A member of the RNA family "Bacterial small subunit ribosomal RNA", 583 nucleotides of a longer RNA. Rfam links the family to the GO terms structural constituent of ribosome and ribosome.

[Rfam]
Nucleotides: 583
Stems, first nucleotide, its partner, number of pairs: 001443002003440003007437001009435005015427001019392005024286001027283007034275002040055004064270007076108002080104004087098004112258001114257004120253002122248003125244004132170006138147003150159002176236004181202007205227001207225001208223004292342003296338001302333003307326002312321003351382001356377003360373003398420007446582001448579001451575002456569008466559005472554006482545001
Number, partner (000 for none) and nucleotide at each position: 001443a002442g003440a004439c005438c006000g007437u008000u009435u010434c011433u012432g013431a014000a015427a016000c017000c018000a019392g020391u021390a022389g023388u024286g025000a026000a027283g028282u029281a030280u031279g032278u033277u034275a035274u036000u037000u038000a039000a040055u041054u042053c043052g044000a045000u046000g047000a048000u049000c050000c051000g052043c053042g054041a055040a056000u057000a058000a059000c060000c061000u062000u063000a064270c065269c066268a067267c068266a069265a070264u071000u072000u073000g074000a075000a076108u077107g078000a079000c080104c081103u082102a083101a084000a085000a086000u087098a088097u089096u090095u091000u092000u093000u094000g095090a096089a097088a098087u099000u100000u101083u102082u103081a104080g105000a106000c107077c108076a109000c110000a111000u112258g113000c114257g115256u116255u117254g118000c119000a120253u121252g122248g123247c124246u125244g126243u127242c128241u129000u130000c131000a132170g133169u134168u135167a136166a137165u138147g139146u140145c141000g142000u143000g144000a145140g146139a147138u148000u149000u150159g151158g152000u153000u154000a155000g156000g157000u158151c159150c160000a161000u162000u163000a164000a165137a166136u167135u168134a169133a170132c171000g172000u173000a174000a175000a176236c177235c178234c179233u180000u181202g182201u183200u184199u185198u186197a187196u188000u189000u190000a191000u192000u193000a194000u195000a196187a197186u198185a199184a200183a201182g202181c203000a204000g205227c206000u207225c208223u209222c210221c211220g212000c213000u214000u215000a216000c217000a218000a219000u220211u221210g222209g223208a224000u225207g226000u227205g228000a229000u230000a231000a232000u233179a234178g235177g236176g237000a238000c239000u240000a241128a242127g243126a244125c245000a246124a247123g248122u249000c250000a251000u252121c253120a254117u255116g256115g257114c258112c259000u260000u261000a262000a263000u264070a265069u266068u267067g268066u269065g270064g271000g272000c273000u274035a275034u276000a277033g278032a279031c280030g281029u282028g283027c284000c285000a286024c287000a288000u289000g290000u291000g292342c293341c294340u295000u296338u297000a298000c299000a300000a301000a302333g303332g304331g305000a306000u307326g308325c309000a310000a311000u312321a313320a314319u315000g316000c317000g318000a319314a320313u321312u322000g323000g324000a325308g326307c327000u328000a329000a330000u331304c332303c333302c334000u335000a336000a337000a338296a339000c340294a341293g342292g343000a344000u345000a346000a347000a348000g349000u350000a351382u352000g353000g354000a355000u356377u357376g358375u359000u360373g361372u362371c363000u364000g365000a366000a367000a368000u369000u370000c371362g372361a373360c374000u375358g376357c377356a378000u379000g380000a381000a382351a383000a384000a385000g386000g387000a388023a389022u390021u391020a392019c393000u394000a395000g396000u397000a398420a399419u400418c401417g402416u403415g404414a405000g406000u407000a408000a409000u410000c411000a412000c413000a414404u415403c416402a417401c418400g419399g420398u421000g422000a423000a424000u425000u426000u427015u428000a429000u430000c431013u432012c433011a434010g435009a436000u437007a438005g439004g440003u441000a442002c443001u444000a445000a446582c447000c448579a449000c450000u451575c452574g453000u454000c455000a456569g457568g458567c459566g460565c461564u462563g463562a464000a465000a466559g467558g468557a469556g470555u471000a472554u473553g474552u475551g476550c477549a478000a479000u480000a481000a482545g483000u484000u485000u486000g487000g488000u489000g490000g491000c492000u493000g494000c495000g496000g497000a498000u499000u500000g501000c502000u503000a504000g505000u506000c507000u508000a509000a510000a511000u512000g513000u514000a515000c516000a517000g518000g519000u520000u521000u522000a523000g524000a525000u526000c527000u528000u529000u530000u531000g532000g533000c534000a535000g536000a537000a538000a539000u540000a541000u542000c543000u544000u545482c546000g547000u548000a549477u550476g551475c552474g553473u554472g555470a556469c557468u558467c559466u560000a561000a562463u563462u564461g565460g566459u567458g568457u569456u570000a571000a572000g573000u574452c575451g576000a577000a578000a579448u580000a581000c582446g583000g